[Rfam]
The record is a 181-nucleotide RNA from Crocodylus porosus, which matches "Small nucleolar RNA SNORA81" in Rfam. Pairs were carried over by alignment from the consensus structure, which was predicted with WAR. Its family is annotated with RNA processing and nucleolus in the Gene Ontology.

Nucleotides: 181
Base pairs, nucleotide, nucleotide: 018077019076021074022073023072024071025070028067029066030065031064034058035057037055038054039053040052041051042050043049101174104173105172106171107170108169109168110167125150127148128147129146130145
Number, partner (000 for none) and nucleotide at each position: 001000a002000c003000c004000u005000u006000c007000u008000u009000g010000u011000u012000c013000a014000a015000g016000c017000a018077c019076u020000g021074u022073g023072c024071u025070a026000a027000a028067a029066u030065u031064a032000c033000a034058g035057g036000a037055a038054c039053c040052a041051g042050g043049g044000c045000u046000c047000u048000a049043c050042u051041u052040u053039g054038g055037u056000u057035c058034c059000u060000g061000u062000a063000g064031u065030a066029a067028u068000g069000c070025u071024a072023g073022c074021a075000g076019a077018g078000u079000a080000c081000a082000c083000a084000c085000a086000g087000g088000a089000a090000g091000a092000a093000g094000a095000g096000u097000a098000a099000u100000u101174g102000u103000a104173c105172a106171c107170u108169g109168a110167a111000u112000u113000g114000a115000a116000a117000a118000g119000g120000a121000c122000u123000u124000g125150g126000g127148u128147g129146g130145a131000c132000c133000u134000c135000u136000u137000u138000c139000u140000u141000a142000a143000u144000g145130u146129c147128c148127a149000g150125u151000g152000u153000c154000c155000u156000a157000u158000g159000u160000c161000u162000u163000a164000a165000g166000a167110u168109u169108c170107a171106g172105u173104g174101c175000u176000a177000u178000a179000a180000c181000u
For this family Rfam cites "A novel experimental approach for systematic identification of box H/ACA snoRNAs from eukaryotes" (Gu et al., Nucleic Acids Res, 2005).